[Rfam]
RNA: FMN riboswitch aptamer (RFN element)
RNA sequence: UUACUGCUUCGGGACUAGGUGGAAUUCCUAACCGGCGGUAUUAUCUUUAGCUUGGAGUUUCAGUAGCUUGAAGAUUCAGUCCGCGAGCCUAUAAUGGUUGAUUUGGUGAGAUUCCAAAACCGACAGUAAAGUCUGGAGGGGAGAAGACAUCU
Numbered sequence: 001u002u003a004c005u006g007c008u009u010c011g012g013g014a015c016u017a018g019g020u021g022g023a024a025u026u027c028c029u030a031a032c033c034g035g036c037g038g039u040a041u042u043a044u045c046u047u048u049a050g051c052u053u054g055g056a057g058u059u060u061c062a063g064u065a066g067c068u069u070g071a072a073g074a075u076u077c078a079g080u081c082c083g084c085g086a087g088c089c090u091a092u093a094a095u096g097g098u099u100g101a102u103u104u105g106g107u108g109a110g111a112u113u114c115c116a117a118a119a120c121c122g123a124c125a126g127u128a129a130a131g132u133c134u135g136g137a138g139g140g141g142a143g144a145a146g147a148c149a150u151c152u
Stems, first nucleotide, its partner, number of pairs: 003150001007146004017029003031132002033122002035084004087098003102118005124135003